[Rfam]
RNA sequence: UCUUCAGUGAUGAUCAGUACAGUGACUUUCGUUCUUCUGAGCUUCCUGAAGCUGCUAUUUCUGUCCUGAGAAGA
Numbered sequence: 001u002c003u004u005c006a007g008u009g010a011u012g013a014u015c016a017g018u019a020c021a022g023u024g025a026c027u028u029u030c031g032u033u034c035u036u037c038u039g040a041g042c043u044u045c046c047u048g049a050a051g052c053u054g055c056u057a058u059u060u061c062u063g064u065c066c067u068g069a070g071a072a073g074a
Stems, first nucleotide, its partner, number of pairs: 001074003005070001
The record is a 74-nucleotide RNA from Mastacembelus armatus, which matches "Small nucleolar RNA SNORD59" in Rfam. Gene Ontology terms of the family: RNA processing and nucleolus. On this family, see Galardi et al., Mol Cell Biol 2002: "Purified box C/D snoRNPs are able to reproduce site-specific 2'-O-methylation of target RNA in vitro". The family's RNA type in Rfam is C/D-box small nucleolar RNA. Clan: SNORD59 clan. Pairs were carried over by alignment from the consensus structure, which was predicted with ILM.